[Rfam]
RNA sequence: CCUCCCGUGUCACCUCCCUGCACGGGACGCGUUUACGCGUUUCAAACCCGGCCUGCGUCGGGUUUUUUUU
Numbered sequence: 001c002c003u004c005c006c007g008u009g010u011c012a013c014c015u016c017c018c019u020g021c022a023c024g025g026g027a028c029g030c031g032u033u034u035a036c037g038c039g040u041u042u043c044a045a046a047c048c049c050g051g052c053c054u055g056c057g058u059c060g061g062g063u064u065u066u067u068u069u070u
Base pairs, nucleotide, nucleotide: 004026005025006024007023008022009021029038030037031036045064046063047062048061049060050059051058052057